[Rfam]
RNA sequence: GCAGGCAUAACACCACGAUGCUCGUUCCACACAGAACCAUUCCUUGUGUUCUUCUUCGCGAGCGGGUAAGGUCUGAGAACUGCUCCCUCGAUCGGCUCUAGCUGGGCCCUCUACCAGGCUUGGUUUUGAUCGACGUAUCAGAAAAUCGUCUCUUGCUGUUGAGUCUGCGUUCAUUGCUGCUCUUCAGCUCGUAUACUCGAAGAUCAGGUUUGGUGUGUAUCCUCAAUAAUACACCUGGAUUCUGGGAGACAUGUAAAAAGGGAGACUUGGAAGUUGUCGUGGAGUUUUGUGGUGCUUGGGCCCUUUUUGUUGCGGAGUGCUCCAUCGGCAUAGCAGUGUUUCUUGAGGAAACGCAGGACAAACAAUCAUGGCAGACACCGGGUUGAUUGUUCUUCGAUGUUAUGAAUGUAACGUCGAUGCUGUAGGCGAGUCACAAGCUUGCCUCGGAUUACCGUUGGCCAACCACGUCCAUGUGUCGUGGCUGAUAAGCAUGAAGGUCGUUAGAUCUUCUUGCGCGCUAACAGUGUCAUCCCGUGUACGAGGAGAUCCACGCUCUACAAAGGUCCAAGCAUCCUUUAGUGCACUUCGUGGUACGCGAUUGCCCUCGAAAGCAUCUUUGGAUGGUUUUCAGGCUCGUGCAACUCGAUUCAGACUACUCUAUGUUUGC
Numbered sequence: 001g002c003a004g005g006c007a008u009a010a011c012a013c014c015a016c017g018a019u020g021c022u023c024g025u026u027c028c029a030c031a032c033a034g035a036a037c038c039a040u041u042c043c044u045u046g047u048g049u050u051c052u053u054c055u056u057c058g059c060g061a062g063c064g065g066g067u068a069a070g071g072u073c074u075g076a077g078a079a080c081u082g083c084u085c086c087c088u089c090g091a092u093c094g095g096c097u098c099u100a101g102c103u104g105g106g107c108c109c110u111c112u113a114c115c116a117g118g119c120u121u122g123g124u125u126u127u128g129a130u131c132g133a134c135g136u137a138u139c140a141g142a143a144a145a146u147c148g149u150c151u152c153u154u155g156c157u158g159u160u161g162a163g164u165c166u167g168c169g170u171u172c173a174u175u176g177c178u179g180c181u182c183u184u185c186a187g188c189u190c191g192u193a194u195a196c197u198c199g200a201a202g203a204u205c206a207g208g209u210u211u212g213g214u215g216u217g218u219a220u221c222c223u224c225a226a227u228a229a230u231a232c233a234c235c236u237g238g239a240u241u242c243u244g245g246g247a248g249a250c251a252u253g254u255a256a257a258a259a260g261g262g263a264g265a266c267u268u269g270g271a272a273g274u275u276g277u278c279g280u281g282g283a284g285u286u287u288u289g290u291g292g293u294g295c296u297u298g299g300g301c302c303c304u305u306u307u308u309g310u311u312g313c314g315g316a317g318u319g320c321u322c323c324a325u326c327g328g329c330a331u332a333g334c335a336g337u338g339u340u341u342c343u344u345g346a347g348g349a350a351a352c353g354c355a356g357g358a359c360a361a362a363c364a365a366u367c368a369u370g371g372c373a374g375a376c377a378c379c380g381g382g383u384u385g386a387u388u389g390u391u392c393u394u395c396g397a398u399g400u401u402a403u404g405a406a407u408g409u410a411a412c413g414u415c416g417a418u419g420c421u422g423u424a425g426g427c428g429a430g431u432c433a434c435a436a437g438c439u440u441g442c443c444u445c446g447g448a449u450u451a452c453c454g455u456u457g458g459c460c461a462a463c464c465a466c467g468u469c470c471a472u473g474u475g476u477c478g479u480g481g482c483u484g485a486u487a488a489g490c491a492u493g494a495a496g497g498u499c500g501u502u503a504g505a506u507c508u509u510c511u512u513g514c515g516c517g518c519u520a521a522c523a524g525u526g527u528c529a530u531c532c533c534g535u536g537u538a539c540g541a542g543g544a545g546a547u548c549c550a551c552g553c554u555c556u557a558c559a560a561a562g563g564u565c566c567a568a569g570c571a572u573c574c575u576u577u578a579g580u581g582c583a584c585u586u587c588g589u590g591g592u593a594c595g596c597g598a599u600u601g602c603c604c605u606c607g608a609a610a611g612c613a614u615c616u617u618u619g620g621a622u623g624g625u626u627u628u629c630a631g632g633c634u635c636g637u638g639c640a641a642c643u644c645g646a647u648u649c650a651g652a653c654u655a656c657u658c659u660a661u662g663u664u665u666g667c
Stems, first nucleotide, its partner, number of pairs: 001667004007661003012592007020063005034051004039045001073651005083284004094108005113124004131279005148266007594638005
RNA: Nuclear RNase P
Organism: Rhodocollybia butyracea